RNA sequence: GGUCUUACAUCUGCAGGAUUUCUCGCCUAUAUCUUGGGUGCUGCUUCGGCAGCUAUGACGAUAAAUGGCGUUCGUAAUAAGCGGACUGGACCCGGGGGCGGUACCCGGCGGCUCCACCCAAGUUCUCACCAAGCAAAGGUGAGAGUUUCGGAGGGGCCGAAAUAGCAUCGACAGACGUGUAAAGGCUCUGCUUUCGUUCGGAUGGCCUCCGUUAUUGGGCCAUUAUUAUAGUUGCAAAUGACAACUACGAUGAAGGUUUUGCUCUCGCUGCGUAACGCAGUGCGAAAUUAACCGCCUUAAAGCCCUAGUGCCUUAUCAGCGCUAGGCGGGGCCGCCGGGGGCCUGGCAACAGAACCCCGGCAUU
Numbered sequence: 001g002g003u004c005u006u007a008c009a010u011c012u013g014c015a016g017g018a019u020u021u022c023u024c025g026c027c028u029a030u031a032u033c034u035u036g037g038g039u040g041c042u043g044c045u046u047c048g049g050c051a052g053c054u055a056u057g058a059c060g061a062u063a064a065a066u067g068g069c070g071u072u073c074g075u076a077a078u079a080a081g082c083g084g085a086c087u088g089g090a091c092c093c094g095g096g097g098g099c100g101g102u103a104c105c106c107g108g109c110g111g112c113u114c115c116a117c118c119c120a121a122g123u124u125c126u127c128a129c130c131a132a133g134c135a136a137a138g139g140u141g142a143g144a145g146u147u148u149c150g151g152a153g154g155g156g157c158c159g160a161a162a163u164a165g166c167a168u169c170g171a172c173a174g175a176c177g178u179g180u181a182a183a184g185g186c187u188c189u190g191c192u193u194u195c196g197u198u199c200g201g202a203u204g205g206c207c208u209c210c211g212u213u214a215u216u217g218g219g220c221c222a223u224u225a226u227u228a229u230a231g232u233u234g235c236a237a238a239u240g241a242c243a244a245c246u247a248c249g250a251u252g253a254a255g256g257u258u259u260u261g262c263u264c265u266c267g268c269u270g271c272g273u274a275a276c277g278c279a280g281u282g283c284g285a286a287a288u289u290a291a292c293c294g295c296c297u298u299a300a301a302g303c304c305c306u307a308g309u310g311c312c313u314u315a316u317c318a319g320c321g322c323u324a325g326g327c328g329g330g331g332c333c334g335c336c337g338g339g340g341g342c343c344u345g346g347c348a349a350c351a352g353a354a355c356c357c358c359g360g361c362a363u364u
Base pairs, nucleotide, nucleotide: 040053041052042051043050044049057198058197059196060195061194067191070188073185082177083176086174087173088172092108093107094106095105096104109159110158111157112156113155114154115153199211200210201209202208205221206218207217329344330343331342332341336360338358339357340356